Source information
A member of the RNA family "SAM-I/IV (S-adenosyl methionine) riboswitch aptamer" from Rhodovastum atsumiense, 108 nucleotides long. For this family Rfam cites "The aptamer core of SAM-IV riboswitches mimics the ligand-binding site of SAM-I riboswitches" (Weinberg et al., RNA, 2008). Pairs were carried over by alignment from the consensus structure, which is taken from published work. Its Rfam clan is "SAM clan". The source organism's lineage runs through Bacteria, Pseudomonadota, Alphaproteobacteria, Acetobacteraceae and Rhodovastum.

RNA sequence: GUGCUGCAUCAAGAGUUGGGACGACGCCCAACGCCAACCUGCCGAUCCGGGCAAGGUGGCGCUCCCGCGAGGGAGGAUGUGGCCAGGCCGGCAACCAAACGGACACAA
Numbered sequence: 001g002u003g004c005u006g007c008a009u010c011a012a013g014a015g016u017u018g019g020g021a022c023g024a025c026g027c028c029c030a031a032c033g034c035c036a037a038c039c040u041g042c043c044g045a046u047c048c049g050g051g052c053a054a055g056g057u058g059g060c061g062c063u064c065c066c067g068c069g070a071g072g073g074a075g076g077a078u079g080u081g082g083c084c085a086g087g088c089c090g091g092c093a094a095c096c097a098a099a100c101g102g103a104c105a106c107a108a
Base pairs, nucleotide, nucleotide: 006080007079008078009077010076015032016031017030018029019028020027033060034059035058038056039055040054041052042051043050046103047102048101049100082092083091084090